[Rfam]
Shown here is a 67-nucleotide RNA, a member of the family "S15-Halobacteria ribosomal protein leader".
The family's RNA type in Rfam is cis-regulatory leader.
Rfam's curators put it in the seed alignment.
For this family Rfam cites "Discovery of 20 novel ribosomal leader candidates in bacteria and archaea" (Eckert and Weinberg, BMC Microbiol, 2020).
Clan: Ribosomal Protein S15 Leader clan.
RNA sequence: ACGGGAACAGCACGACCGCAAAUCUGACUCGCCGUCCGUUUGGGCGGCUCCGAGAUUGCGGCCGUGU
Numbered sequence: 001a002c003g004g005g006a007a008c009a010g011c012a013c014g015a016c017c018g019c020a021a022a023u024c025u026g027a028c029u030c031g032c033c034g035u036c037c038g039u040u041u042g043g044g045c046g047g048c049u050c051c052g053a054g055a056u057u058g059c060g061g062c063c064g065u066g067u
Stems, first nucleotide, its partner, number of pairs: 010067004016061006024054002031048007